[Rfam]
RNA sequence: CGUUGUCUCUGACAACAGCCAAUGUCCUGGUGAUUUGAGAAGGACGCCUUCGGGCAAUCACAAGCCAAAGCGACCCUAACCUGAGAGGACGCGCUUUAGAGCGGUAACCCCCCUGAACCUUUGAGAGCGGGGAUCGCACUUCACUGCGAUGAAGGUGACU
Numbered sequence: 001c002g003u004u005g006u007c008u009c010u011g012a013c014a015a016c017a018g019c020c021a022a023u024g025u026c027c028u029g030g031u032g033a034u035u036u037g038a039g040a041a042g043g044a045c046g047c048c049u050u051c052g053g054g055c056a057a058u059c060a061c062a063a064g065c066c067a068a069a070g071c072g073a074c075c076c077u078a079a080c081c082u083g084a085g086a087g088g089a090c091g092c093g094c095u096u097u098a099g100a101g102c103g104g105u106a107a108c109c110c111c112c113c114u115g116a117a118c119c120u121u122u123g124a125g126a127g128c129g130g131g132g133a134u135c136g137c138a139c140u141u142c143a144c145u146g147c148g149a150u151g152a153a154g155g156u157g158a159c160u
Base pairs, nucleotide, nucleotide: 002016003015004014005013006012007011024045025044026043027042028041030061031060032059033058034057035056046055047054048053070092071091072090074088079105080104081103093102094101095100109131110130111129113127117156118155119154120153121152133150134149135148136147137146138145
The record is a 160-nucleotide RNA from Serratia fonticola, which matches "STAXI RNA" in Rfam. NCBI's taxonomy places the organism under Bacteria, Pseudomonadati, Enterobacterales, Yersiniaceae, Serratia.